[Rfam]
RNA sequence: UUCACACCUACACCUAAACCCAUUUUUCAUAGCAGUGCUUUAAACAGAGCUGUUCACAAGUGGAUCUCAUCGCCUUUGAGAGGCCGUGGCUGUGCCCCUCAAAGUGAAUUUGGAGGUUCCACACUC
Number, nucleotide and partner (000 for none) at each position: 001u000002u000003c000004a053005c052006a051007c000008c049009u048010a000011c000012a000013c000014c000015u000016a000017a000018a040019c000020c000021c037022a036023u035024u031025u000026u000027u000028c000029a000030u000031a024032g000033c000034a000035g023036u022037g021038c000039u000040u018041u000042a000043a000044a000045c000046a000047g000048a009049g008050c000051u006052g005053u004054u000055c000056a000057c000058a000059a000060g000061u000062g119063g118064a117065u116066c115067u114068c113069a000070u000071c000072g000073c000074c104075u103076u102077u101078g100079a099080g098081a000082g096083g095084c094085c000086g000087u000088g000089g000090c000091u000092g000093u000094g084095c083096c082097c000098c080099u079100c078101a077102a076103a075104g074105u000106g000107a000108a000109u000110u000111u000112g000113g068114a067115g066116g065117u064118u063119c062120c000121a000122c000123a000124c000125u000126c000
RNA: Small nucleolar RNA SNORA68